[Rfam]
RNA: S15-Methanomicrobia ribosomal protein leader
RNA sequence: AGCACUUUUCGUGAUGAAAGUGCUGGCAUAUGUAAAUCCGACGUGCAUCCCAUGCACGGCCCGCAGUGGCUGGGGAUUAC
Dot-bracket structure: (((((((((......))))))))).......((((..((...(((((.....)))))((((......))))..)).))))
Numbered sequence: 001a002g003c004a005c006u007u008u009u010c011g012u013g014a015u016g017a018a019a020g021u022g023c024u025g026g027c028a029u030a031u032g033u034a035a036a037u038c039c040g041a042c043g044u045g046c047a048u049c050c051c052a053u054g055c056a057c058g059g060c061c062c063g064c065a066g067u068g069g070c071u072g073g074g075g076a077u078u079a080c
Stems, first nucleotide, its partner, number of pairs: 001024009032080004038075002043057005058071004